[Rfam]
RNA: 7SK RNA
Organism: Urocitellus parryii
RNA sequence: GGAUGUGAGGGCGAUCUGGCUGCGACAUCUGUCACCCCAUUGAUCGCCAGGGUUGAUUCGGCUGAUCUGGCUGGCUAGGCGGGUGUCCCCUUCCUCCCUCACCGCUCCAUGUGCGUCCCUCCCGAAGCUGCGCGCUCGGUCGAAGAGGACGACCUUCCCCGAUAGAGGAGCACCGGUCUUCGGUCAAGGGUAUACGAGUAGCUGCGCUCCCCUGCUAGAACCUCCAAACAAGCUCUCAAGAGAAAAAAAUUGUUUUGGCACUGUUUUGGAGGCUCCCGUUCAGACUGGCUCUGUUGUUCUUGGCCUGUGGCGAGCCACAUGUC
Numbered sequence: 001g002g003a004u005g006u007g008a009g010g011g012c013g014a015u016c017u018g019g020c021u022g023c024g025a026c027a028u029c030u031g032u033c034a035c036c037c038c039a040u041u042g043a044u045c046g047c048c049a050g051g052g053u054u055g056a057u058u059c060g061g062c063u064g065a066u067c068u069g070g071c072u073g074g075c076u077a078g079g080c081g082g083g084u085g086u087c088c089c090c091u092u093c094c095u096c097c098c099u100c101a102c103c104g105c106u107c108c109a110u111g112u113g114c115g116u117c118c119c120u121c122c123c124g125a126a127g128c129u130g131c132g133c134g135c136u137c138g139g140u141c142g143a144a145g146a147g148g149a150c151g152a153c154c155u156u157c158c159c160c161g162a163u164a165g166a167g168g169a170g171c172a173c174c175g176g177u178c179u180u181c182g183g184u185c186a187a188g189g190g191u192a193u194a195c196g197a198g199u200a201g202c203u204g205c206g207c208u209c210c211c212c213u214g215c216u217a218g219a220a221c222c223u224c225c226a227a228a229c230a231a232g233c234u235c236u237c238a239a240g241a242g243a244a245a246a247a248a249a250u251u252g253u254u255u256u257g258g259c260a261c262u263g264u265u266u267u268g269g270a271g272g273c274u275c276c277c278g279u280u281c282a283g284a285c286u287g288g289c290u291c292u293g294u295u296g297u298u299c300u301u302g303g304c305c306u307g308u309g310g311c312g313a314g315c316c317a318c319a320u321g322u323c
Stems, first nucleotide, its partner, number of pairs: 001108003005102007013093002018090002024087010035074002037070003042067004046062003117170001118168004122139004127135002140162003147158003201289003207283002212278001214276001222271004228266001230264001232262001302323003306319005